[Rfam]
RNA sequence: CAUCGGGACACGCUGCCCCAACGCAGCGCAACUAUCUGGAAGGAUAGACAUA
Numbered sequence: 001c002a003u004c005g006g007g008a009c010a011c012g013c014u015g016c017c018c019c020a021a022c023g024c025a026g027c028g029c030a031a032c033u034a035u036c037u038g039g040a041a042g043g044a045u046a047g048a049c050a051u052a
Stems, first nucleotide, its partner, number of pairs: 011028006032047006
Source information: A member of the RNA family "serC leader" from Eilatimonas milleporae, 52 nucleotides long. It scores 61 bits against the family's covariance model. The organism belongs to Eilatimonas, within Bacteria. It is annotated as a cis-regulatory leader. About the family: This family is a putative regulatory RNA structure that is found upstream of the serC-serA operon in some alpha-proteobacteria. The final stem of the structure overlaps the ribosome binding site of the serC reading frame.